[Rfam]
RNA: Small nucleolar RNA SNORA1
Organism: Otolemur garnettii
RNA sequence: AAAUAUAUAUGAGAUGGGCACUGUUGAUUUUGGUGUCCAAAAAUUGUUUAUGUGGCUAAACUGAGACACAGGUUAUGCUUCUAACACAGUUUAUGUAUUGCAGUGGUGACAAUGAGGCCUGGAAUAUUU
Numbered sequence: 001a002a003a004u005a006u007a008u009a010u011g012a013g014a015u016g017g018g019c020a021c022u023g024u025u026g027a028u029u030u031u032g033g034u035g036u037c038c039a040a041a042a043a044u045u046g047u048u049u050a051u052g053u054g055g056c057u058a059a060a061c062u063g064a065g066a067c068a069c070a071g072g073u074u075a076u077g078c079u080u081c082u083a084a085c086a087c088a089g090u091u092u093a094u095g096u097a098u099u100g101c102a103g104u105g106g107u108g109a110c111a112a113u114g115a116g117g118c119c120u121g122g123a124a125u126a127u128u129u
Stems, first nucleotide, its partner, number of pairs: 002051001015039007069121004082108002085105003